[Rfam]
RNA sequence: AAAUCAAAUAGAGGUCGCAAAUAACAAAAUUAGUUAGCGGAGUUUUCCAUUCAGCAAAGAAACUAACGAAAGGGUUGUUUGCCGAAGUGCCAAGUAAUGGAGCUUGGUUAACUGGGACAUAACUUAAAAGGUUAUGGACUGUCGGAAUUUAUUCCGGGGAGCUAUGUAUAAU
Number, nucleotide and partner (000 for none) at each position: 001a000002a000003a000004u000005c000006a167007a000008a165009u164010a163011g162012a000013g000014g000015u000016c000017g082018c081019a080020a079021a078022u077023a076024a075025c074026a000027a000028a000029a000030u000031u000032a000033g067034u066035u065036a064037g063038c000039g000040g000041a000042g000043u000044u000045u000046u000047c000048c000049a000050u000051u000052c000053a000054g000055c000056a000057a000058a000059g000060a000061a000062a000063c037064u036065a035066a034067c033068g000069a000070a000071a000072g000073g000074g025075u024076u023077g022078u021079u020080u019081g018082c017083c000084g000085a000086a113087g112088u111089g108090c107091c106092a105093a104094g103095u102096a000097a000098u000099g000100g000101a000102g095103c094104u093105u092106g091107g090108u089109u000110a000111a088112c087113u086114g140115g139116g000117a000118c136119a135120u134121a133122a132123c131124u130125u000126a000127a000128a000129a000130g124131g123132u122133u121134a120135u119136g118137g000138a000139c115140u114141g000142u157143c156144g155145g154146a153147a152148u000149u000150u000151a000152u147153u146154c145155c144156g143157g142158g000159g000160a000161g000162c011163u010164a009165u008166g000167u006168a000169u000170a000171a000172u000